[Rfam]
Notes: The record is a 135-nucleotide RNA from Todus mexicanus, which matches "Small Cajal body specific RNA 3" in Rfam. Clan: SCARNA3 clan. Rfam 15.1 lists 642 matches to the family in 535 species. The organism belongs to Todus, within Eukaryota. scaRNAs are a specific class of small nuclear RNAs which localise to the Cajal bodies and guide the modification of RNA polymerase II transcribed spliceosomal RNAs U1, U2, U4, U5 and U12. Its family is annotated with Cajal body, nucleolus and RNA processing in the Gene Ontology.
RNA sequence: GCUGGAAGCUGCUGGAACCAGUUGUGGGCAAAACGUAUGUGUGUUGUCCACUGCUGCAGUCUUCCUAGAGUAAAGUGGAGGUCUCUGUCUGCUUUAGGAGAGCCGACUAAACCAGAUCGUUCCUCUCCAUACACA
Numbered sequence: 001g002c003u004g005g006a007a008g009c010u011g012c013u014g015g016a017a018c019c020a021g022u023u024g025u026g027g028g029c030a031a032a033a034c035g036u037a038u039g040u041g042u043g044u045u046g047u048c049c050a051c052u053g054c055u056g057c058a059g060u061c062u063u064c065c066u067a068g069a070g071u072a073a074a075g076u077g078g079a080g081g082u083c084u085c086u087g088u089c090u091g092c093u094u095u096a097g098g099a100g101a102g103c104c105g106a107c108u109a110a111a112c113c114a115g116a117u118c119g120u121u122c123c124u125c126u127c128c129a130u131a132c133a134c135a
Base pairs, nucleotide, nucleotide: 004065005064006063008060009059010058011057012056024051025050026049027048028047029046034043035042036041077128078127079126080125081124085119087117088116089115091113093111094110095109096108097107